[Rfam]
About this RNA
A member of the RNA family "DUF1874 RNA", 98 nucleotides long. The family's RNA type in Rfam is cis-regulatory element. Rfam's curators put it in the seed alignment.
RNA sequence: GUCAGCCCAGGGUCAAGUUUGGAAGUGGUCAUCCAAGGUAAGUGCGGACAAAGUCCGCCGCCACUUCUCCAAAAAGGGCUUGACCUUAGGGUGGAGGA
Number, nucleotide and partner (000 for none) at each position: 001g000002u000003c000004a000005g000006c091007c090008c089009a087010g000011g000012g084013u083014c082015a081016a000017g000018u000019u000020u000021g068022g067023a066024a065025g064026u063027g062028g061029u060030c000031a000032u000033c000034c000035a000036a000037g000038g000039u000040a000041a000042g059043u000044g058045c057046g056047g055048a054049c000050a000051a000052a000053g000054u048055c047056c046057g045058c044059c042060g029061c028062c027063a026064c025065u024066u023067c022068u021069c078070c077071a000072a000073a000074a000075a000076g000077g070078g069079c000080u000081u015082g014083a013084c012085c000086u000087u009088a000089g008090g007091g006092u000093g000094g000095a000096g000097g000098a000